[Rfam]
RNA sequence: GCAACGCUGGCCUGAACGGCUUAGUCGGUUCGCGAAGCGCGGUCCGAUUAAUUGGCUCAUUUGUUGCGAUGUUGUGUUUGCAAACUCGUAUUUCGAGAAUUGGGUAGAACUGCCUCUACCGCAGUGUUUGGUCUGAUUCAGACGAAGCAUUACUUCCUGUAUUUUUUGACUGUUUGUCGAUUUCUUAUACCGCCUCACCUAGGCGGUAUUUUUUUAU
Numbered sequence: 001g002c003a004a005c006g007c008u009g010g011c012c013u014g015a016a017c018g019g020c021u022u023a024g025u026c027g028g029u030u031c032g033c034g035a036a037g038c039g040c041g042g043u044c045c046g047a048u049u050a051a052u053u054g055g056c057u058c059a060u061u062u063g064u065u066g067c068g069a070u071g072u073u074g075u076g077u078u079u080g081c082a083a084a085c086u087c088g089u090a091u092u093u094c095g096a097g098a099a100u101u102g103g104g105u106a107g108a109a110c111u112g113c114c115u116c117u118a119c120c121g122c123a124g125u126g127u128u129u130g131g132u133c134u135g136a137u138u139c140a141g142a143c144g145a146a147g148c149a150u151u152a153c154u155u156c157c158u159g160u161a162u163u164u165u166u167u168g169a170c171u172g173u174u175u176g177u178c179g180a181u182u183u184c185u186u187a188u189a190c191c192g193c194c195u196c197a198c199c200u201a202g203g204c205g206g207u208a209u210u211u212u213u214u215u216a217u
Stems, first nucleotide, its partner, number of pairs: 009057004015053002021051008030042005085097004103120006161183001187209007
RNA: GcvB RNA